[Rfam]
RNA sequence: UCUUAGGGGUGCUAGGGUUCCGGUUCGCGAGAAUGUCUGGUCCGAGAGCAGCCCGGCACGGCGCGCAGUCCCGUUCGGAACGGACCGCGCAGCCGCGCUACACGGCGGGAUAAAAGCCCGGGAGAU
Numbered sequence: 001u002c003u004u005a006g007g008g009g010u011g012c013u014a015g016g017g018u019u020c021c022g023g024u025u026c027g028c029g030a031g032a033a034u035g036u037c038u039g040g041u042c043c044g045a046g047a048g049c050a051g052c053c054c055g056g057c058a059c060g061g062c063g064c065g066c067a068g069u070c071c072c073g074u075u076c077g078g079a080a081c082g083g084a085c086c087g088c089g090c091a092g093c094c095g096c097g098c099u100a101c102a103c104g105g106c107g108g109g110a111u112a113a114a115a116g117c118c119c120g121g122g123a124g125a126u
Stems, first nucleotide, its partner, number of pairs: 007054003010050003015043002020040002022037001023034004055099003059095004101121001103124001107119003

This 126-nucleotide RNA from Pararobbsia silviterrae belongs to the Rfam family "Guanidine-I riboswitch aptamer". For this family Rfam cites "Structural basis for guanidine sensing by the ykkC family of riboswitches" (Battaglia et al., RNA, 2017).